[Rfam]
Nucleotides: 145
Stems, first nucleotide, its partner, number of pairs: 001128002006029001008027001030125006040050002051110003059084007087104003
Number, partner (000 for none) and nucleotide at each position: 001128c002127c003000g004000c005000g006029g007000a008027u009000g010000c011000c012000g013000c014000g015000a016000a017000g018000g019000a020000c021000c022000c023000g024000a025000g026000g027008a028000a029006c030125g031124c032123g033122a034121g035120g036000g037000a038000c039000c040050c041049g042000a043000g044000c045000g046000g047000c048000u049041u050040g051110g052109g053108g054000u055000g056000a057000a058000g059084c060083c061082c062081c063080g064079g065078g066000c067000g068000c069000c070000g071000c072000a073000a074000g075000g076000c077000a078065c079064u080063c081062g082061g083060g084059g085000c086000c087104g088103g089102g090000c091000a092000a093000c094000u095000c096000a097000c098000c099000u100000g101000a102089c103088c104087c105000g106000a107000a108053c109052c110051c111000g112000a113000c114000a115000g116000c117000u118000c119000a120035c121034c122033u123032c124031g125030c126000a127002g128001g129000c130000g131000u132000c133000g134000g135000u136000g137000a138000g139000a140000a141000g142000g143000a144000a145000c
A member of the RNA family "c-di-AMP riboswitch aptamer (ydaO/yuaA leader)" from Streptomyces marincola, 145 nucleotides long.